The family of this 95-nucleotide RNA from Hibiscus syriacus is "MIR403 microRNA precursor family". The family has 13 seed sequences and 215 matches in Rfam 15.1. On this family, see Mica et al., BMC Genomics 2009: "High throughput approaches reveal splicing of primary microRNA transcripts and tissue specific expression of mature microRNAs in Vitis vinifera". The match comes from Rfam's covariance-model search (76 bits).

RNA sequence: UCAGAUUUCAGGUUUGUGCGUGAAUCUAACAAAACCAAAGAUGAAAAGUUGGAUUUGUUUAACAUUAGAUUCACGCACAAACUCGUAAUCUGUCU
Numbered sequence: 001u002c003a004g005a006u007u008u009c010a011g012g013u014u015u016g017u018g019c020g021u022g023a024a025u026c027u028a029a030c031a032a033a034a035c036c037a038a039a040g041a042u043g044a045a046a047a048g049u050u051g052g053a054u055u056u057g058u059u060u061a062a063c064a065u066u067a068g069a070u071u072c073a074c075g076c077a078c079a080a081a082c083u084c085g086u087a088a089u090c091u092g093u094c095u
Stems, first nucleotide, its partner, number of pairs: 002092002005089003011083016028066002043055001